[Rfam]
RNA: Betaproteobacteria toxic small RNA
Organism: Noviherbaspirillum autotrophicum
RNA sequence: UGUCUCCUCCAACUCUCCUUGAAUUGGAUUGAACCCGCUGCCGCAAGGACAGCGGGUUUUUUUUC
Numbered sequence: 001u002g003u004c005u006c007c008u009c010c011a012a013c014u015c016u017c018c019u020u021g022a023a024u025u026g027g028a029u030u031g032a033a034c035c036c037g038c039u040g041c042c043g044c045a046a047g048g049a050c051a052g053c054g055g056g057u058u059u060u061u062u063u064u065c
Stems, first nucleotide, its partner, number of pairs: 008028005014022002032058008